[Rfam]
RNA: MIR5291 microRNA precursor family
RNA sequence: GAUGGAUUGAAUUCAAUCCAUUAACAAUUUUAUUGUAUAAUAGAUGGAUUGGAUAAAUUUAAAA
Numbered sequence: 001g002a003u004g005g006a007u008u009g010a011a012u013u014c015a016a017u018c019c020a021u022u023a024a025c026a027a028u029u030u031u032a033u034u035g036u037a038u039a040a041u042a043g044a045u046g047g048a049u050u051g052g053a054u055a056a057a058u059u060u061a062a063a064a
Base pairs, nucleotide, nucleotide: 004060005059006058007057008056011054012053013052014051015050016049017048018047019046020045021044022043026038027036028035